RNA sequence: UUGAAGGAUACAGGAGAGAGCAUAAUAUUAUGCCACCGAAGGAGUAAAAUUUUUAUUUGCUCAAAAUAGAAAUUGAAACUCUCAGGUAAAAGGACCGUAUCUGGACA
Numbered sequence: 001u002u003g004a005a006g007g008a009u010a011c012a013g014g015a016g017a018g019a020g021c022a023u024a025a026u027a028u029u030a031u032g033c034c035a036c037c038g039a040a041g042g043a044g045u046a047a048a049a050u051u052u053u054u055a056u057u058u059g060c061u062c063a064a065a066a067u068a069g070a071a072a073u074u075g076a077a078a079c080u081c082u083c084a085g086g087u088a089a090a091a092g093g094a095c096c097g098u099a100u101c102u103g104g105a106c107a
Stems, first nucleotide, its partner, number of pairs: 006102006013095001020033004035087003038083002042081003048074011
Background
Rfam assigns this 107-nucleotide sequence from Halanaerobium saccharolyticum to the family "Glycine riboswitch aptamer". Rfam describes the family as follows. This family represents the bacterial glycine riboswitch. The match comes from Rfam's covariance-model search (68 bits). Lineage of the source: Bacteria > Bacillota > Halanaerobiales > Halanaerobium > Halanaerobium saccharolyticum subsp. saccharolyticum.